Description
The family of this 36-nucleotide RNA from Yimella sp. RIT 621 is "abiF RNA". The organism belongs to Yimella, within Bacteria. A search with the family's covariance model found it, with a score of 39 bits. From the family's description: Actinobacteria, Bacteroidetes, Clostridia, Proteobacteria, one Clostridia phage. The base pairs follow the family's consensus structure, which is taken from published work. By type it is a small RNA.
RNA sequence: CCUCCCAAGCCUCUCGUAGAAGCUCAAAUGGGAGGG
Numbered sequence: 001c002c003u004c005c006c007a008a009g010c011c012u013c014u015c016g017u018a019g020a021a022g023c024u025c026a027a028a029u030g031g032g033a034g035g036g
Stems, first nucleotide, its partner, number of pairs: 001035006008024003